[Rfam]
RNA sequence: GUUUAGCCCUGAUUGAAACGGAAUCCUUUUUUUAACUUAAUUAAUAAGUGUCAUUACGAAUGAAGUAAUCUGUAUUUGGAUAAAAAGAUUGCUUCGUAAACUCGCAAUGACAUUUAAGAAUAGAAAAAAAAGAUAUAGUGAAAAGCAGGAAACCUG
Numbered sequence: 001g002u003u004u005a006g007c008c009c010u011g012a013u014u015g016a017a018a019c020g021g022a023a024u025c026c027u028u029u030u031u032u033u034a035a036c037u038u039a040a041u042u043a044a045u046a047a048g049u050g051u052c053a054u055u056a057c058g059a060a061u062g063a064a065g066u067a068a069u070c071u072g073u074a075u076u077u078g079g080a081u082a083a084a085a086a087g088a089u090u091g092c093u094u095c096g097u098a099a100a101c102u103c104g105c106a107a108u109g110a111c112a113u114u115u116a117a118g119a120a121u122a123g124a125a126a127a128a129a130a131a132g133a134u135a136u137a138g139u140g141a142a143a144a145g146c147a148g149g150a151a152a153c154c155u156g
Stems, first nucleotide, its partner, number of pairs: 009148003013144002018139002023134003029129005036123001
Rfam assigns this 156-nucleotide RNA from Polaribacter sp. SA4-12 to the family "Flavo-1 RNA".
The base pairs follow the family's consensus structure, which is taken from published work.